Rfam assigns this 130-nucleotide RNA sequence from Ammoniphilus oxalaticus to the family "Ribosomal protein L20 leader".
For this family Rfam cites "Diverse mechanisms for regulating ribosomal protein synthesis in Escherichia coli" (Zengel and Lindahl, Prog Nucleic Acid Res Mol Biol, 1994).
Rfam describes the family as follows. This family is a putative r-protein leader autoregulatory structure found in B. subtilis and other low-GC Gram-positive bacteria.
Lineage of the source: Bacteria > Bacillota > Caryophanales > Paenibacillaceae > Ammoniphilus.
It scores 72 bits against the family's covariance model.
RNA sequence: CUAUUAAAGUAGAAGCAUCCGCUUCUCACCUGUGUUGACGCUGUGAGCUGUUGCCAGGUUAUGAAUCUCGUUUAAAUAUGAACUGAGAAUCUAAUGCGGAUGCCCAUGGUGUCUGCAUUUUUUGUGUUGG
Numbered sequence: 001c002u003a004u005u006a007a008a009g010u011a012g013a014a015g016c017a018u019c020c021g022c023u024u025c026u027c028a029c030c031u032g033u034g035u036u037g038a039c040g041c042u043g044u045g046a047g048c049u050g051u052u053g054c055c056a057g058g059u060u061a062u063g064a065a066u067c068u069c070g071u072u073u074a075a076a077u078a079u080g081a082a083c084u085g086a087g088a089a090u091c092u093a094a095u096g097c098g099g100a101u102g103c104c105c106a107u108g109g110u111g112u113c114u115g116c117a118u119u120u121u122u123u124g125u126g127u128u129g130g
Stems, first nucleotide, its partner, number of pairs: 011026006028059003037052003040048002095117010